This 180-nucleotide sequence from Callorhinchus milii belongs to the Rfam family "Small nucleolar RNA SNORA23". Rfam links the family to the GO terms nucleolus and RNA processing. The family has 9 seed sequences and 1,092 matches in Rfam 15.1.
RNA sequence: GGCAGGCUGUGUGCAAGGUAUCUGUCCCUGUUUAGUGCUGUUUUCUGACUGUGUUUUGCAGCUGGUUUGCAGUGCUCACACAUACCCUGCUGACCACAGAGAAAAACGAGAUCAUAGUACUGGUCCAGUGACGUCGCAAGACAGUUUGCCACUGAUCAGCCUCCAAACUCUCAUACAACA
Number, nucleotide and partner (000 for none) at each position: 001g000002g000003c000004a000005g000006g000007c000008u000009g000010u000011g000012u000013g090014c089015a088016a000017g000018g000019u000020a000021u000022c000023u000024g000025u000026c000027c000028c000029u082030g081031u080032u000033u078034a000035g076036u074037g073038c072039u071040g070041u069042u000043u000044u000045c065046u064047g063048a000049c000050u060051g059052u058053g000054u000055u000056u000057u000058g052059c051060a050061g000062c000063u047064g046065g045066u000067u000068u000069g041070c040071a039072g038073u037074g036075c000076u035077c000078a033079c000080a031081c030082a029083u000084a000085c000086c000087c000088u015089g014090c013091u000092g000093a000094c000095c000096a000097c000098a000099g000100a000101g000102a000103a000104a000105a000106a000107c000108g172109a171110g170111a169112u000113c000114a000115u000116a000117g000118u000119a000120c159121u158122g157123g156124u155125c154126c000127a153128g152129u151130g150131a000132c144133g142134u141135c140136g000137c000138a000139a000140g135141a134142c133143a000144g132145u000146u000147u000148g000149c000150c130151a129152c128153u127154g125155a124156u123157c122158a121159g120160c000161c000162u000163c000164c000165a000166a000167a000168c000169u111170c110171u109172c108173a000174u000175a000176c000177a000178a000179c000180a000
Taxonomically the source falls in Callorhinchus (Eukaryota, Chordata, Chondrichthyes, Callorhinchidae).